Small nucleolar RNA R21: a 91-nucleotide sequence from Turnera subulata.
Taxonomically the source falls in Turnera (Eukaryota, Streptophyta, Streptophytina, Passifloraceae).
RNA sequence: CAUCUCCGUGAUGAAUUGUUUCAAAUUUAACAAAAAAAAAAAAAGUAGUGGGCUGAUCUCUACUGAUGAUAAAUAUGAAUUCUGAGGGAUA
Number, nucleotide and partner (000 for none) at each position: 001c000002a090003u089004c088005u087006c086007c000008g000009u000010g000011a000012u000013g000014a000015a000016u000017u000018g000019u000020u000021u000022c000023a000024a000025a000026u000027u000028u000029a000030a000031c000032a000033a000034a000035a000036a000037a000038a000039a000040a000041a000042a000043a000044a000045g000046u000047a000048g000049u000050g000051g000052g000053c000054u000055g000056a000057u000058c000059u000060c000061u000062a000063c000064u000065g000066a000067u000068g000069a000070u000071a000072a000073a000074u000075a000076u000077g000078a000079a000080u000081u000082c000083u000084g000085a000086g006087g005088g004089a003090u002091a000
Annotation: The family's RNA type in Rfam is C/D-box small nucleolar RNA. The literature on the family includes a 2001 paper in J Mol Biol by Barneche et al., "Identification of 66 box C/D snoRNAs in Arabidopsis thaliana: extensive gene duplications generated multiple isoforms predicting new ribosomal RNA 2'-O-methylation sites".